[Rfam]
Shown here is a 107-nucleotide sequence from Alteribacillus iranensis, a member of the family "TPP riboswitch aptamer (THI element)". The organism belongs to Alteribacillus, within Bacteria.

RNA sequence: AGUAACCACUAGGGGUGCCUUCAGAUAGGCUGAGAUUAAAAUGUGCUUUUAAAACCCUUGAACCUGAACUGGAUGAUACCAGCGUAGGAAAGUGGAACGUGAAGAGA
Numbered sequence: 001a002g003u004a005a006c007c008a009c010u011a012g013g014g015g016u017g018c019c020u021u022c023a024g025a026u027a028g029g030c031u032g033a034g035a036u037u038a039a040a041a042u043g044u045g046c047u048u049u050u051a052a053a054a055c056c057c058u059u060g061a062a063c064c065u066g067a068a069c070u071g072g073a074u075g076a077u078a079c080c081a082g083c084g085u086a087g088g089a090a091a092g093u094g095g096a097a098c099g100u101g102a103a104g105a106g107a
Base pairs, nucleotide, nucleotide: 006095007094008093009092010091011058012057013056014055016052017030018029019028020027037051038050039049040048041047063088064087065086066085069082070081071080072079
Vitamin B(1) in its active form thiamin pyrophosphate (TPP) is an essential coenzyme that is synthesised by coupling of pyrimidine and thiazole moieties in bacteria. A search with the family's covariance model found it, with a score of 80 bits.